Shown here is a 152-nucleotide RNA sequence from Triticum aestivum, a member of the family "mir-399 microRNA precursor family". The match comes from Rfam's covariance-model search (68 bits). Gene Ontology terms of the family: RISC complex and miRNA-mediated post-transcriptional gene silencing. On this family, see Jones-Rhoades and Bartel, Mol Cell 2004: "Computational Identification of Plant MicroRNAs and Their Targets, Including a Stress-Induced miRNA". mir-399 was identified in both Arabidopsis thaliana and Oryza sativa computationally and was later experimentally verified. mir-399 is thought to target mRNAs coding for a phosphatase transporter. The mature sequence is excised from the 3' arm of the hairpin.

RNA sequence: GUGUGAAUCUCAGGGCGUUUCUCCUUUGGCACGCUGGCAUGCAUGUAUUGGUAACAGGAGCUAGCCAGGUGAGUUUGCAGGUGAAGAAGCUCCAGGGAGGCUAGAUAACCUUUGUCGUGCGUGCCAAAGGAGAAUUGCCCUGCGAUUCACCU
Numbered sequence: 001g002u003g004u005g006a007a008u009c010u011c012a013g014g015g016c017g018u019u020u021c022u023c024c025u026u027u028g029g030c031a032c033g034c035u036g037g038c039a040u041g042c043a044u045g046u047a048u049u050g051g052u053a054a055c056a057g058g059a060g061c062u063a064g065c066c067a068g069g070u071g072a073g074u075u076u077g078c079a080g081g082u083g084a085a086g087a088a089g090c091u092c093c094a095g096g097g098a099g100g101c102u103a104g105a106u107a108a109c110c111u112u113u114g115u116c117g118u119g120c121g122u123g124c125c126a127a128a129g130g131a132g133a134a135u136u137g138c139c140c141u142g143c144g145a146u147u148c149a150c151c152u
Stems, first nucleotide, its partner, number of pairs: 005148005011142006017135002021132004027126008